PyrR binding site: a 111-nucleotide sequence from Neobacillus massiliamazoniensis. The match comes from Rfam's covariance-model search (64 bits). This family represents the PyrR binding site and terminator structure. This RNA structure is found upstream of a variety of genes involved in pyrimidine biosynthesis and transport. The alignment also includes a portion of the antiterminator structure.

[Rfam]
RNA sequence: AACCCUUUUAAAUGCGGUCCUGUGAGGCUGACAAAGGGGAAAAAGCCGAAAGUAUACUUUUACGGCGUCUUCAUUUCCACUUUGUACCGUCACGAACAAAGUGGUUUUUUU
Numbered sequence: 001a002a003c004c005c006u007u008u009u010a011a012a013u014g015c016g017g018u019c020c021u022g023u024g025a026g027g028c029u030g031a032c033a034a035a036g037g038g039g040a041a042a043a044a045g046c047c048g049a050a051a052g053u054a055u056a057c058u059u060u061u062a063c064g065g066c067g068u069c070u071u072c073a074u075u076u077c078c079a080c081u082u083u084g085u086a087c088c089g090u091c092a093c094g095a096a097c098a099a100a101g102u103g104g105u106u107u108u109u110u111u
Stems, first nucleotide, its partner, number of pairs: 003038006015030005039072003043068001045066004050061003077104009087094001
Dot-bracket structure: ..((((((......(((((......)))))..))))))(((.(.((((.(((......))).)))).).)))....(((((((((.(......).))))))))).......